RNA sequence: GGGGGCGACUUGGCUUCGACGUGGAUCACAAAGUCUGGGGAGCAUGCAGUGGGUGUGGUGACCACUUAAACACUAGUCACAAACAAUAGUCGCAAACGACGACUCUUACGCUCUCGCCGCUUAAUAACCGGUUGAAAGCUGUCUGAUCGGUUCUGUGCUUAUGCAGGCCGAAUAUUCAGGCAUCAUCCAAUCAUAAGAUCGUGAGGGAGGCUCGCCCAAGGCCAAACCACUAAAACAGUAUUGGGACAGCCCGUGAGCAGCCUGUCAGUUGGCGGCAAUCGGGUUAAACAAACGACUGACUAAGCAUGUAGCUGGCCUUCAGAUGGAGGGUUUGCGGACGCGGGUUCAAUUCCCGCCGCCUCCACCA
Numbered sequence: 001g002g003g004g005g006c007g008a009c010u011u012g013g014c015u016u017c018g019a020c021g022u023g024g025a026u027c028a029c030a031a032a033g034u035c036u037g038g039g040g041a042g043c044a045u046g047c048a049g050u051g052g053g054u055g056u057g058g059u060g061a062c063c064a065c066u067u068a069a070a071c072a073c074u075a076g077u078c079a080c081a082a083a084c085a086a087u088a089g090u091c092g093c094a095a096a097c098g099a100c101g102a103c104u105c106u107u108a109c110g111c112u113c114u115c116g117c118c119g120c121u122u123a124a125u126a127a128c129c130g131g132u133u134g135a136a137a138g139c140u141g142u143c144u145g146a147u148c149g150g151u152u153c154u155g156u157g158c159u160u161a162u163g164c165a166g167g168c169c170g171a172a173u174a175u176u177c178a179g180g181c182a183u184c185a186u187c188c189a190a191u192c193a194u195a196a197g198a199u200c201g202u203g204a205g206g207g208a209g210g211c212u213c214g215c216c217c218a219a220g221g222c223c224a225a226a227c228c229a230c231u232a233a234a235a236c237a238g239u240a241u242u243g244g245g246a247c248a249g250c251c252c253g254u255g256a257g258c259a260g261c262c263u264g265u266c267a268g269u270u271g272g273c274g275g276c277a278a279u280c281g282g283g284u285u286a287a288a289c290a291a292a293c294g295a296c297u298g299a300c301u302a303a304g305c306a307u308g309u310a311g312c313u314g315g316c317c318u319u320c321a322g323a324u325g326g327a328g329g330g331u332u333u334g335c336g337g338a339c340g341c342g343g344g345u346u347c348a349a350u351u352c353c354c355g356c357c358g359c360c361u362c363c364a365c366c367a
Base pairs, nucleotide, nucleotide: 001363002362003361004360005359006358007357020336021335022334023333024332025331026330027329033324034323035322036321037319038318039317040316043308044307045306046305047304048066049065050064051063052062054081055080056079057078058077059076112137114135115134116132117131118130119129140182141181142180143179144178145177147171148170149169150168153166154165155164158197159196160195161194162193163192201230202229203228214247216245217244219242249284250283251282252281253280257276258275260273261272262271264300265299266298267297268296269295270294340356341355342354343353344352
The record is a 367-nucleotide RNA from Thiothrix nivea, which matches "transfer-messenger RNA" in Rfam. NCBI's taxonomy places the organism under Bacteria, Pseudomonadati, Pseudomonadota, Gammaproteobacteria, Thiothrix nivea. Rfam describes the family as follows. Bacterial tmRNA, also known as 10Sa RNA or SsrA, is named for its dual tRNA and mRNA-like properties. Its role is to liberate the mRNA from a stalled ribosome.